Source information
Shown here is an 89-nucleotide RNA from Mytilus edulis, a member of the family "Small nucleolar RNA SNORD70". About the family: snoRNA HBII-234 belongs to the C/D family of snoRNAs. It is the human orthologue of the mouse MBII-234 and is predicted to guide 2'O-ribose methylation of the small 18S rRNA on position A512. It is hosted, together with HBII-95, by the core C/D box snoRNA protein encoding gene NOP5/NOP58. Taxonomically the source falls in Mytilus (Eukaryota, Mollusca, Mytilida, Mytilidae). A reference for the family is Huttenhofer et al. (2001), "RNomics: an experimental approach that identifies 201 candidates for novel, small, non-messenger RNAs in mouse", EMBO J.
RNA sequence: GUUGUAGCUGUCUAUGAUGGAAAUCUUGGCGACUGAUAACAGUGAUGUCAUUCUACCUAUUUCGUCACUACCUCUGAGAUAGCUAUAGC
Numbered sequence: 001g002u003u004g005u006a007g008c009u010g011u012c013u014a015u016g017a018u019g020g021a022a023a024u025c026u027u028g029g030c031g032a033c034u035g036a037u038a039a040c041a042g043u044g045a046u047g048u049c050a051u052u053c054u055a056c057c058u059a060u061u062u063c064g065u066c067a068c069u070a071c072c073u074c075u076g077a078g079a080u081a082g083c084u085a086u087a088g089c
Base pairs, nucleotide, nucleotide: 001089002088003087004086005085006084007083008082009081010080011079012078